Shown here is a 67-nucleotide RNA sequence, a member of the family "int-alpA RNA". Rfam's curators write: Acidobacteria (1 example), Planctomycetes (1 example), Proteobacteria. It is one of the family's seed sequences.
[Rfam]
RNA sequence: GGCGCGGAUAGGGUAGCUCCCGAAAGCUGGAUUCCGCAUCCAGCCUUCCGCGUCACCGAAUAUGCGG
Numbered sequence: 001g002g003c004g005c006g007g008a009u010a011g012g013g014u015a016g017c018u019c020c021c022g023a024a025a026g027c028u029g030g031a032u033u034c035c036g037c038a039u040c041c042a043g044c045c046u047u048c049c050g051c052g053u054c055a056c057c058g059a060a061u062a063u064g065c066g067g
Stems, first nucleotide, its partner, number of pairs: 001054008011021003026044005034067006